Rfam assigns this 99-nucleotide RNA sequence from Leptolyngbyaceae cyanobacterium T60_A2020_046 to the family "Glutamine riboswitch aptamer (glnA leader)". Lineage of the source: Bacteria > Bacillati > Cyanobacteriota > Leptolyngbyales > Leptolyngbyaceae. The base pairs follow the family's consensus structure, which is taken from published work.
RNA sequence: AUCGUUCACCCUUGGGUUUUGCUCAUACUAUGAGCAAAACCAUGGGACGGGUCGCAACCCGGCAAGGGCGGAAGUAGGGAACUCCCGAAGGAACGCGCC
Numbered sequence: 001a002u003c004g005u006u007c008a009c010c011c012u013u014g015g016g017u018u019u020u021g022c023u024c025a026u027a028c029u030a031u032g033a034g035c036a037a038a039a040c041c042a043u044g045g046g047a048c049g050g051g052u053c054g055c056a057a058c059c060c061g062g063c064a065a066g067g068g069c070g071g072a073a074g075u076a077g078g079g080a081a082c083u084c085c086c087g088a089a090g091g092a093a094c095g096c097g098c099c
Stems, first nucleotide, its partner, number of pairs: 003095005009068005071096001077086003